The family of this 140-nucleotide RNA sequence from Eleutherodactylus coqui is "U4 spliceosomal RNA". Rfam's curators write: U4 small nuclear RNA (U4 snRNA) is a component of the major U2-dependent spliceosome.
RNA sequence: AGCUUUGCAUUGUGGGAGUGUCAUAGCCCAUGAGGUUUAACUGAUGCGUGGUUAUUGCUAACUGAAAACCUUUCCUAAUAUCCCCGCCAUGAUGGCUUGAAAUAGUCAGCAUUGGCAAUAUUUGCUGGUCUCUCAGGAGA
Number, nucleotide and partner (000 for none) at each position: 001a000002g000003c000004u000005u000006u000007g000008c000009a000010u000011u000012g000013u000014g000015g000016g000017a000018g000019u000020g052021u051022c050023a049024u048025a000026g047027c046028c000029c000030a000031u000032g000033a000034g042035g041036u040037u000038u000039a000040a036041c035042u034043g000044a000045u000046g027047c026048g024049u023050g022051g021052u020053u000054a000055u000056u000057g000058c000059u000060a000061a000062c000063u000064g000065a000066a000067a000068a000069c000070c000071u000072u000073u000074c000075c000076u000077a000078a000079u000080a000081u000082c000083c000084c000085c000086g116087c115088c114089a112090u111091g110092a000093u108094g107095g106096c105097u104098u000099g000100a000101a000102a000103u000104a097105g096106u095107c094108a093109g000110c091111a090112u089113u000114g088115g087116c086117a000118a000119u000120a000121u000122u000123u000124g000125c000126u000127g000128g000129u140130c139131u138132c137133u000134c000135a000136g000137g132138a131139g130140a129
NCBI's taxonomy places the organism under Eukaryota, Eumetazoa, Teleostomi, Amphibia, Eleutherodactylus.
A search with the family's covariance model found it, with a score of 90 bits.
The family is grouped with related families in Rfam's "U4 clan".
By type it is a spliceosomal small nuclear RNA.